Rfam assigns this 90-nucleotide RNA from Caenorhabditis angaria to the family "mir-1 microRNA precursor family". Rfam links the family to the GO terms RISC complex and miRNA-mediated post-transcriptional gene silencing. It scores 58 bits against the family's covariance model. The family's consensus secondary structure was predicted with RNAalifold.
RNA sequence: UCCCGGACCACGUACUUCUUUACAUGUCCCAUACUGAAAAACUUGGUUGAAAAAAGAGUUAUGGAAUGUAAAGAAGUAUGUAGACCGGGC
Numbered sequence: 001u002c003c004c005g006g007a008c009c010a011c012g013u014a015c016u017u018c019u020u021u022a023c024a025u026g027u028c029c030c031a032u033a034c035u036g037a038a039a040a041a042c043u044u045g046g047u048u049g050a051a052a053a054a055a056g057a058g059u060u061a062u063g064g065a066a067u068g069u070a071a072a073g074a075a076g077u078a079u080g081u082a083g084a085c086c087g088g089g090c
Base pairs, nucleotide, nucleotide: 008083010081011080012079013078014077015076016075017074018073019072020071021070022069023068024067025066029064030063031062032061033060

Rfam's curators write: This family represents the microRNA (miRNA) mir-1 family. miRNAs are transcribed as ~70nt precursors (modelled here) and subsequently processed by the Dicer enzyme to give a ~22nt product. NCBI's taxonomy places the organism under Eukaryota, Rhabditida, Rhabditina, Rhabditomorpha, Caenorhabditis.